[Rfam]
The family of this 73-nucleotide RNA sequence from Tessaracoccus lapidicaptus is "tRNA". The organism belongs to Tessaracoccus, within Bacteria.
RNA sequence: GUCCCCAUCGUCUAGCGGCCUAGGACUCCGCCCUUUCACGGCGGCAGCACGGGUUCGAAUCCCGUUGGGGAUG
Numbered sequence: 001g002u003c004c005c006c007a008u009c010g011u012c013u014a015g016c017g018g019c020c021u022a023g024g025a026c027u028c029c030g031c032c033c034u035u036u037c038a039c040g041g042c043g044g045c046a047g048c049a050c051g052g053g054u055u056c057g058a059a060u061c062c063c064g065u066u067g068g069g070g071a072u073g
Stems, first nucleotide, its partner, number of pairs: 001072007010026004028044005049065005